[Rfam]
RNA: U1A polyadenylation inhibition element (PIE)
RNA sequence: UCCUGAAGCAUUGUACCCAGGGUCUGCUGUUCAGACAUUGCACCUGGAGCUCGCUUUCCAAUAAAAGCUCCCU
Numbered sequence: 001u002c003c004u005g006a007a008g009c010a011u012u013g014u015a016c017c018c019a020g021g022g023u024c025u026g027c028u029g030u031u032c033a034g035a036c037a038u039u040g041c042a043c044c045u046g047g048a049g050c051u052c053g054c055u056u057u058c059c060a061a062u063a064a065a066a067g068c069u070c071c072c073u
Stems, first nucleotide, its partner, number of pairs: 007051003017047004022036005